[Rfam]
RNA sequence: AUCGUUCAUCUCCUUGGACUCGCUAACGAACUAUUGUUUGCAGGCUAAAGAGACGGAAGUAGAGUGAAAUCUCGAAGGAACGCGCC
Number, nucleotide and partner (000 for none) at each position: 001a000002u000003c082004g081005u080006u079007c078008a000009u053010c052011u051012c050013c000014u000015u000016g000017g000018a000019c000020u000021c000022g000023c000024u000025a000026a000027c000028g000029a000030a000031c000032u000033a000034u000035u000036g000037u000038u000039u000040g000041c000042a000043g000044g000045c000046u000047a000048a000049a000050g012051a011052g010053a009054c000055g000056g083057a000058a000059g000060u000061a000062g073063a072064g071065u000066g000067a000068a000069a000070u000071c064072u063073c062074g000075a000076a000077g000078g007079a006080a005081c004082g003083c056084g000085c000086c000
RNA: Glutamine riboswitch aptamer (glnA leader)